This 124-nucleotide RNA sequence from Xaviernesmea oryzae belongs to the Rfam family "Alphaproteobacterial ar14". About the family: Smr14C2 was renamed NfeR1 (Nodule Formation Efficiency RNA) highly expressed in salt stress and during the symbiotic interaction on legume roots. NCBI's taxonomy places the organism under Bacteria, Pseudomonadati, Alphaproteobacteria, Rhizobiaceae, Xaviernesmea. It is annotated as a small RNA.

[Rfam]
RNA sequence: AGAUGUCGACGACCAUCUCCUCCUCCCAUUGGUUCGUCGGCCCCAGAACGGCAGCAUCCUCCUCCCGCUGACCGUUCACCUUUCGGAAAGCCUGCCGCACCUCCUCCCGCGGCAGGCUUUUCCA
Numbered sequence: 001a002g003a004u005g006u007c008g009a010c011g012a013c014c015a016u017c018u019c020c021u022c023c024u025c026c027c028a029u030u031g032g033u034u035c036g037u038c039g040g041c042c043c044c045a046g047a048a049c050g051g052c053a054g055c056a057u058c059c060u061c062c063u064c065c066c067g068c069u070g071a072c073c074g075u076u077c078a079c080c081u082u083u084c085g086g087a088a089a090g091c092c093u094g095c096c097g098c099a100c101c102u103c104c105u106c107c108c109g110c111g112g113c114a115g116g117c118u119u120u121u122c123c124a
Stems, first nucleotide, its partner, number of pairs: 005041003009037004013032003046077006052070003088119011